[Rfam]
RNA: Burkholderia sRNA Bp2_Cand287_SIPHT
RNA sequence: AAAAAGCCCGCUUUGCGUCGGCAGAAGCGGGCUUUCGGGUGUUCGGGGCAGCAGCGCAGCGUAUCGGAAAUCGGGCGAUUGCGGUUCGAUUUCUUCCGAUUCCUUCCGCCGCUUUCGUCCGUUUCGCUUUAGCUGUUUUGGGUUGCCCCGCGUCCGCAAGCUGAGAUCAAAUCGACGCAAGCGCUCAUGCUAACACGGGCAAGCGCGCUGCGC
Numbered sequence: 001a002a003a004a005a006g007c008c009c010g011c012u013u014u015g016c017g018u019c020g021g022c023a024g025a026a027g028c029g030g031g032c033u034u035u036c037g038g039g040u041g042u043u044c045g046g047g048g049c050a051g052c053a054g055c056g057c058a059g060c061g062u063a064u065c066g067g068a069a070a071u072c073g074g075g076c077g078a079u080u081g082c083g084g085u086u087c088g089a090u091u092u093c094u095u096c097c098g099a100u101u102c103c104u105u106c107c108g109c110c111g112c113u114u115u116c117g118u119c120c121g122u123u124u125c126g127c128u129u130u131a132g133c134u135g136u137u138u139u140g141g142g143u144u145g146c147c148c149c150g151c152g153u154c155c156g157c158a159a160g161c162u163g164a165g166a167u168c169a170a171a172u173c174g175a176c177g178c179a180a181g182c183g184c185u186c187a188u189g190c191u192a193a194c195a196c197g198g199g200c201a202a203g204c205g206c207g208c209u210g211c212g213c
Base pairs, nucleotide, nucleotide: 004034005033006032007031008030009029010028011027012026014023015022016021042179044177045176053128054127055126058124059123129164130163131162132161133160134159140149141148142147150157151156194212196210197209198208